About this RNA:
Shown here is a 45-nucleotide RNA sequence from Clostridium tarantellae, a member of the family "PreQ1 (pre queuosine) riboswitch aptamer". Taxonomically the source falls in Clostridium (Bacteria, Bacillati, Bacillota, Clostridia). A reference for the family is Reader et al. (2004), "Identification of four genes necessary for biosynthesis of the modified nucleoside queuosine", J Biol Chem.
RNA sequence: UUGGUAGAUGUUCGAAAACCUCCAUCUAUAAAAAACUAAGGAUUA
Numbered sequence: 001u002u003g004g005u006a007g008a009u010g011u012u013c014g015a016a017a018a019c020c021u022c023c024a025u026c027u028a029u030a031a032a033a034a035a036c037u038a039a040g041g042a043u044u045a
Base pairs, nucleotide, nucleotide: 006027007026008025009024010023016037
Notes:
This family is a bacterial riboswitch that binds to the metabolite preQ1, an intermediate in the biosynthesis of the modified nucleoside queuosine from GTP. One example of this riboswitch is located in the leader of the Bacillus subtilis ykvJKLM (queCDEF) operon which encodes four genes necessary for queuosine production. PreQ1 binding to the riboswitch aptamer is thought to induce premature transcription termination within the leader to down-regulate expression of these genes.